This 99-nucleotide RNA sequence from Ancylostoma caninum belongs to the Rfam family "Nematode sRNA ceN72-3_ceN74-2". It is annotated as a small RNA. The family's consensus secondary structure was predicted with WAR.

RNA sequence: UGGUGCGGUCCGGAGUCAGUGGGUUAUCAUUUCGCGUUCCUCAAAAGGGAACGUGCCCGCAAGGGCACACCACCCCAUUGGCGAUCACUUGACCGCACC
Numbered sequence: 001u002g003g004u005g006c007g008g009u010c011c012g013g014a015g016u017c018a019g020u021g022g023g024u025u026a027u028c029a030u031u032u033c034g035c036g037u038u039c040c041u042c043a044a045a046a047g048g049g050a051a052c053g054u055g056c057c058c059g060c061a062a063g064g065g066c067a068c069a070c071c072a073c074c075c076c077a078u079u080g081g082c083g084a085u086c087a088c089u090u091g092a093c094c095g096c097a098c099c
Stems, first nucleotide, its partner, number of pairs: 002099003006095005012085001015082009038050004053068006